[Rfam]
RNA sequence: GUACGUUCUCAGGGCGGGGUGGAACUCCCCACCGGCGGUGAGGGCGUCCCGGCCGAUCCGGGGCGACCGAGCCCGCGAGCGCCGGCCCGGUCACGACCGGGGCGGGUCAGCAGAUCCGGUGCGACUCCGGAGCCGACGGUCACAGUCCGGAUGGAAGAGAACGCGA
Number, nucleotide and partner (000 for none) at each position: 001g000002u000003a000004c163005g162006u161007u160008c159009u158010c157011a000012g000013g000014g000015c000016g000017g029018g028019g027020u000021g000022g000023a000024a000025c000026u000027c019028c018029c017030c000031a146032c145033c135034g134035g076036c075037g074038g073039u000040g000041a000042g000043g000044g000045c000046g000047u000048c000049c000050c000051g000052g000053c000054c000055g000056a000057u000058c000059c000060g000061g000062g000063g000064c000065g000066a000067c000068c000069g000070a000071g133072c132073c038074c037075g036076c035077g000078a000079g111080c110081g000082c000083c000084g000085g000086c000087c000088c000089g000090g000091u000092c000093a000094c000095g000096a000097c000098c000099g000100g000101g000102g000103c000104g000105g000106g000107u000108c000109a000110g080111c079112a000113g000114a000115u131116c130117c129118g128119g127120u000121g000122c000123g000124a000125c000126u000127c119128c118129g117130g116131a115132g072133c071134c034135g033136a000137c149138g148139g147140u000141c000142a000143c000144a000145g032146u031147c139148c138149g137150g000151a000152u000153g000154g000155a000156a000157g010158a009159g008160a007161a006162c005163g004164c000165g000166a000
Shown here is a 166-nucleotide sequence from Nocardioides kongjuensis, a member of the family "FMN riboswitch aptamer (RFN element)". Pairs were carried over by alignment from the consensus structure, which is taken from published work. Lineage of the source: Bacteria > Bacillati > Actinomycetota > Actinomycetes > Nocardioides. It scores 88 bits against the family's covariance model.